[Rfam]
RNA sequence: UCUGUCAACGGUAGCGGACGAGCGAAGCGUGGGAGCAUAAGGAGUUGACAGAUAUAGUUAA
Numbered sequence: 001u002c003u004g005u006c007a008a009c010g011g012u013a014g015c016g017g018a019c020g021a022g023c024g025a026a027g028c029g030u031g032g033g034a035g036c037a038u039a040a041g042g043a044g045u046u047g048a049c050a051g052a053u054a055u056a057g058u059u060a061a
Base pairs, nucleotide, nucleotide: 001052002051003050004049005048006047007046008045009044
Shown here is a 61-nucleotide RNA from Lentilactobacillus senioris, a member of the family "Bacillus-plasmid RNA".
NCBI's taxonomy places the organism under Bacteria, Bacillota, Lactobacillales, Lactobacillaceae, Lentilactobacillus senioris.
The family has 31 seed sequences and 155 matches in Rfam 15.1.
The base pairs follow the family's consensus structure, which is taken from published work.